[Rfam]
Notes
Small nucleolar RNA SNORA74: a 201-nucleotide RNA sequence from Terrapene triunguis. Pairs were carried over by alignment from the consensus structure, which was predicted with PFOLD. A search with the family's covariance model found it, with a score of 89 bits. By type it is an H/ACA-box small nucleolar RNA. Taxonomically the source falls in Terrapene (Eukaryota, Eumetazoa, Testudines, Emydidae). From the family's description: U19 belongs to the H/ACA class of snoRNAs. snoRNAs bind a number of proteins (including dyskerin, Gar1p and Nop10p in the case of the H/ACA class) to form snoRNP complexes. This class are thought to guide the sites of modification of uridines to pseudouridines by forming direct base pairing interactions with substrate RNAs. Targets may include ribosomal and spliceosomal RNAs but the exact functions of many snoRNAs, including U19, are not confirmed. Co-precipitation of U19 snoRNA with RNase MRP RNA suggests that U19 may be involved in pre-rRNA processing.

RNA sequence: UCCAGUGGCAGUAAGCUGUCCAGGGCAGUACCAUGCCUGUGACAGUGUUGCACUGCUGGGAGAUAAAAUACUGGCCAUUUCAUGUGUCUGUCAUCACACUUCUGAAGGCAGCUGCCACCAGUGUGGAACAGUGCUGUGCUUCCCUGAGUGUGCACUAAGCAUUUGCCUUCACUCUUUAAUGCUAGUCUGGAAUCACACAUG
Numbered sequence: 001u002c003c004a005g006u007g008g009c010a011g012u013a014a015g016c017u018g019u020c021c022a023g024g025g026c027a028g029u030a031c032c033a034u035g036c037c038u039g040u041g042a043c044a045g046u047g048u049u050g051c052a053c054u055g056c057u058g059g060g061a062g063a064u065a066a067a068a069u070a071c072u073g074g075c076c077a078u079u080u081c082a083u084g085u086g087u088c089u090g091u092c093a094u095c096a097c098a099c100u101u102c103u104g105a106a107g108g109c110a111g112c113u114g115c116c117a118c119c120a121g122u123g124u125g126g127a128a129c130a131g132u133g134c135u136g137u138g139c140u141u142c143c144c145u146g147a148g149u150g151u152g153c154a155c156u157a158a159g160c161a162u163u164u165g166c167c168u169u170c171a172c173u174c175u176u177u178a179a180u181g182c183u184a185g186u187c188u189g190g191a192a193u194c195a196c197a198c199a200u201g
Stems, first nucleotide, its partner, number of pairs: 001060008011051002015046006021039004069133005076126001082124004089117002092114002095111001097108001099107003136196003140192004152182003156178004161173001